L31-Actinobacteria ribosomal protein leader: a 48-nucleotide RNA sequence from Nocardia vinacea.
[Rfam]
RNA sequence: UCGGCUCCGGUUCACGUCCUCGCUAUCUGCGCGGGCGACCCGGCGGCC
Numbered sequence: 001u002c003g004g005c006u007c008c009g010g011u012u013c014a015c016g017u018c019c020u021c022g023c024u025a026u027c028u029g030c031g032c033g034g035g036c037g038a039c040c041c042g043g044c045g046g047c048c
Base pairs, nucleotide, nucleotide: 003048004047005046007043008042009041010040015037016036017035018034019033021031022030023029
By type it is a cis-regulatory leader.